[Rfam]
This 159-nucleotide RNA sequence from Paractinoplanes tereljensis belongs to the Rfam family "c-di-AMP riboswitch aptamer (ydaO/yuaA leader)". It scores 60 bits against the family's covariance model. This family represents a conserved RNA structure found upstream of the ydaO and yuaA genes in Bacillus subtilis and related genes in other bacteria.
RNA sequence: UGCCGCCGCUCGCCGGAUCUCGAACUCGUGGCAGGGAGCGGGGGACCCACACGUUCCUCGGCGCGCUGGUCGCGCGCCUCGGGGUGAAGCCGCCAGGAGCGGCCGGGCACCUCAGCCCGAACCCGACAGCUGACCUCGUAGGCGUGGAGGUUUCUCUCU
Numbered sequence: 001u002g003c004c005g006c007c008g009c010u011c012g013c014c015g016g017a018u019c020u021c022g023a024a025c026u027c028g029u030g031g032c033a034g035g036g037a038g039c040g041g042g043g044g045a046c047c048c049a050c051a052c053g054u055u056c057c058u059c060g061g062c063g064c065g066c067u068g069g070u071c072g073c074g075c076g077c078c079u080c081g082g083g084g085u086g087a088a089g090c091c092g093c094c095a096g097g098a099g100c101g102g103c104c105g106g107g108c109a110c111c112u113c114a115g116c117c118c119g120a121a122c123c124c125g126a127c128a129g130c131u132g133a134c135c136u137c138g139u140a141g142g143c144g145u146g147g148a149g150g151u152u153u154c155u156c157u158c159u
Base pairs, nucleotide, nucleotide: 011144012143013142014141018037019036020035038139039138040137041136042135043134048081082124083123084122090102091101092100093099105118106117107116108115